[Rfam]
The family of this 81-nucleotide sequence from Cyprinus carpio is "mir-219 microRNA precursor family". It scores 68 bits against the family's covariance model. The literature on the family includes a 2003 paper in Science by Lim et al., "Vertebrate microRNA genes". The base pairs follow the family's consensus structure, which was predicted with RNAalifold.
RNA sequence: CAAGCAGUUGAUUGUCCAAACGCAAUUCUUGUGAAAUGUCAAGCGAUCAGUCGAGAAUUGUGCCUGGACAUCUGUUGCUGG
Numbered sequence: 001c002a003a004g005c006a007g008u009u010g011a012u013u014g015u016c017c018a019a020a021c022g023c024a025a026u027u028c029u030u031g032u033g034a035a036a037u038g039u040c041a042a043g044c045g046a047u048c049a050g051u052c053g054a055g056a057a058u059u060g061u062g063c064c065u066g067g068a069c070a071u072c073u074g075u076u077g078c079u080g081g
Stems, first nucleotide, its partner, number of pairs: 003079005010072003014069005021062011
Dot-bracket structure: ..(((((..(((.(((((..(((((((((((....................)))))))))))..))))))))..)))))..